[Rfam]
RNA sequence: GGAAGUGUGUGCUAGUGAUGGCACAACUGAACAUUGAUCGCUAACGUAGAAGAUAUGGCAGAUCUGCUCAGUGGGUGUUGUCACAUGAUGAAGUCGCUUCAAGUAGCUUCUUGUAAUUCGACUCCCGAUUUGCGCGUGCAUCUUCAUGGCCCUCCCCUCGUAACCUUUACGGGGGGACCCUCGGAUUUGCACGCCUGCACGGUCGAGUCCUUCUCAAGUCGCUCCUCGAACCGCCGCGAUUUCCAAAUUGGGGGGCAAAUCGAGAGUAGGUCAGACGAGUCAUAAUUAGUCGCUUCCAUAUACAGGCACUGUCUUGCAGAAAGCAGUUUGCCAUUUUUUUG
Numbered sequence: 001g002g003a004a005g006u007g008u009g010u011g012c013u014a015g016u017g018a019u020g021g022c023a024c025a026a027c028u029g030a031a032c033a034u035u036g037a038u039c040g041c042u043a044a045c046g047u048a049g050a051a052g053a054u055a056u057g058g059c060a061g062a063u064c065u066g067c068u069c070a071g072u073g074g075g076u077g078u079u080g081u082c083a084c085a086u087g088a089u090g091a092a093g094u095c096g097c098u099u100c101a102a103g104u105a106g107c108u109u110c111u112u113g114u115a116a117u118u119c120g121a122c123u124c125c126c127g128a129u130u131u132g133c134g135c136g137u138g139c140a141u142c143u144u145c146a147u148g149g150c151c152c153u154c155c156c157c158u159c160g161u162a163a164c165c166u167u168u169a170c171g172g173g174g175g176g177a178c179c180c181u182c183g184g185a186u187u188u189g190c191a192c193g194c195c196u197g198c199a200c201g202g203u204c205g206a207g208u209c210c211u212u213c214u215c216a217a218g219u220c221g222c223u224c225c226u227c228g229a230a231c232c233g234c235c236g237c238g239a240u241u242u243c244c245a246a247a248u249u250g251g252g253g254g255g256c257a258a259a260u261c262g263a264g265a266g267u268a269g270g271u272c273a274g275a276c277g278a279g280u281c282a283u284a285a286u287u288a289g290u291c292g293c294u295u296c297c298a299u300a301u302a303c304a305g306g307c308a309c310u311g312u313c314u315u316g317c318a319g320a321a322a323g324c325a326g327u328u329u330g331c332c333a334u335u336u337u338u339u340u341g
Stems, first nucleotide, its partner, number of pairs: 001297007015084005027071003032066002036064004040059004305332003308327005

Source information: Rfam assigns this 341-nucleotide sequence from Harpegnathos saltator to the family "Arthropod 7SK RNA". Taxonomically the source falls in Harpegnathos (Eukaryota, Protostomia, Panarthropoda, Formicidae). It scores 131 bits against the family's covariance model. The family's consensus secondary structure is taken from published work. The family is grouped with related families in Rfam's "7SK clan". The family's RNA type in Rfam is non-coding RNA gene.